The record is a 58-nucleotide RNA from Rhodococcoides kyotonense, which matches "msiK RNA" in Rfam.
The family's RNA type in Rfam is cis-regulatory element.
It scores 54 bits against the family's covariance model.
RNA sequence: CACCGACACCCGUCACUCGGAUCGUCCGGCACGUUCCUGCCGGUGAAGGGAUCUACUU
Numbered sequence: 001c002a003c004c005g006a007c008a009c010c011c012g013u014c015a016c017u018c019g020g021a022u023c024g025u026c027c028g029g030c031a032c033g034u035u036c037c038u039g040c041c042g043g044u045g046a047a048g049g050g051a052u053c054u055a056c057u058u
Stems, first nucleotide, its partner, number of pairs: 009050003013046003026043006